SAM-III riboswitch aptamer (SMK box): an 83-nucleotide RNA from Lentilactobacillus buchneri. For this family Rfam cites "S-adenosylmethionine directly inhibits binding of 30S ribosomal subunits to the SMK box translational riboswitch RNA" (Fuchs et al., Proc Natl Acad Sci U S A, 2007). Rfam's curators put it in the seed alignment. Lineage of the source: Bacteria > Bacilli > Lactobacillales > Lentilactobacillus > Lentilactobacillus buchneri.
RNA sequence: GUAGGUUAUGAGUUCCCGAUAGGAUUCACGCCAGACGUGAAGAAGCCUUGUAACCUAAAAAAUAUAUAGGGGGAAAUAAAAUG
Numbered sequence: 001g002u003a004g005g006u007u008a009u010g011a012g013u014u015c016c017c018g019a020u021a022g023g024a025u026u027c028a029c030g031c032c033a034g035a036c037g038u039g040a041a042g043a044a045g046c047c048u049u050g051u052a053a054c055c056u057a058a059a060a061a062a063u064a065u066a067u068a069g070g071g072g073g074a075a076a077u078a079a080a081a082u083g
Stems, first nucleotide, its partner, number of pairs: 013075005021048003025041005054070002